A member of the RNA family "Fluoride riboswitch aptamer (crcB RNA motif)" from Acetobacter aceti, 78 nucleotides long. The source organism's lineage runs through Bacteria, Acetobacterales, Acetobacteraceae, Acetobacter and Acetobacter subgen. Acetobacter. It scores 45 bits against the family's covariance model. Pairs were carried over by alignment from the consensus structure, which is taken from published work.
RNA sequence: GCAGCAGAAGGCAAUGGAUUCUGCCUGACCUUUCCGAAGGUCAAACCGCUCAACGGAGCUGAUGAUUCCUACCUCGCU
Numbered sequence: 001g002c003a004g005c006a007g008a009a010g011g012c013a014a015u016g017g018a019u020u021c022u023g024c025c026u027g028a029c030c031u032u033u034c035c036g037a038a039g040g041u042c043a044a045a046c047c048g049c050u051c052a053a054c055g056g057a058g059c060u061g062a063u064g065a066u067u068c069c070u071a072c073c074u075c076g077c078u
Stems, first nucleotide, its partner, number of pairs: 010025004016069003020065002048059004